Record summary:
Rfam assigns this 133-nucleotide RNA from Mediterraneibacter butyricigenes to the family "Ribosomal protein L10 leader".
RNA sequence: UAUUUUGGUAAGUGACUGCCGAAGACAGCAGGUGCCGUAAGGCAUAAGAAGUAUACGCCUGCCGAGGAAGAACAGAUUCAAAAUGAAUUGUUGUGUCUCCAUGUCUUAGGGCUGGAGAUUUUUUUAUACCUAU
Numbered sequence: 001u002a003u004u005u006u007g008g009u010a011a012g013u014g015a016c017u018g019c020c021g022a023a024g025a026c027a028g029c030a031g032g033u034g035c036c037g038u039a040a041g042g043c044a045u046a047a048g049a050a051g052u053a054u055a056c057g058c059c060u061g062c063c064g065a066g067g068a069a070g071a072a073c074a075g076a077u078u079c080a081a082a083a084u085g086a087a088u089u090g091u092u093g094u095g096u097c098u099c100c101a102u103g104u105c106u107u108a109g110g111g112c113u114g115g116a117g118a119u120u121u122u123u124u125u126a127u128a129c130c131u132a133u
Stems, first nucleotide, its partner, number of pairs: 028062006034043003096118006103112003